Shown here is a 118-nucleotide sequence from Glycine max, a member of the family "mir-393 microRNA precursor family".
[Rfam]
RNA sequence: GGAGGAGGCAUCCAAAGGGAUCGCAUUGAUCCCAAAUCCAAGCUUUAAUAUUUUUCUCUCUUCUCACUCAAUAAUAUUAAUUUAUUUGGGAUCAUGCUAUCCCUUUGGAUUUCUCCUU
Numbered sequence: 001g002g003a004g005g006a007g008g009c010a011u012c013c014a015a016a017g018g019g020a021u022c023g024c025a026u027u028g029a030u031c032c033c034a035a036a037u038c039c040a041a042g043c044u045u046u047a048a049u050a051u052u053u054u055u056c057u058c059u060c061u062u063c064u065c066a067c068u069c070a071a072u073a074a075u076a077u078u079a080a081u082u083u084a085u086u087u088g089g090g091a092u093c094a095u096g097c098u099a100u101c102c103c104u105u106u107g108g109a110u111u112u113c114u115c116c117u118u
Stems, first nucleotide, its partner, number of pairs: 002118005008112001010110012023097004028093008

Rfam 15.1 lists 1,052 matches to the family in 221 species.
Rfam links the family to the GO terms RISC complex and miRNA-mediated post-transcriptional gene silencing.